[Rfam]
RNA: Small nucleolar RNA snoR111
RNA sequence: GAGAAAUUAGAGACUUGUGUGUCUCUUCAUUGAAAGGAAACUGAUGUAGAGUAAUAUGGCGACAUAUCAUUUCAAUCGCCCUAUAUUUUGAUCGGAGAUUUGAUUGUUGCUCCUCUACAU
Numbered sequence: 001g002a003g004a005a006a007u008u009a010g011a012g013a014c015u016u017g018u019g020u021g022u023c024u025c026u027u028c029a030u031u032g033a034a035a036g037g038a039a040a041c042u043g044a045u046g047u048a049g050a051g052u053a054a055u056a057u058g059g060c061g062a063c064a065u066a067u068c069a070u071u072u073c074a075a076u077c078g079c080c081c082u083a084u085a086u087u088u089u090g091a092u093c094g095g096a097g098a099u100u101u102g103a104u105u106g107u108u109g110c111u112c113c114u115c116u117a118c119a120u
Stems, first nucleotide, its partner, number of pairs: 005031003010025005058116002061112002066104004075099003079095002084090001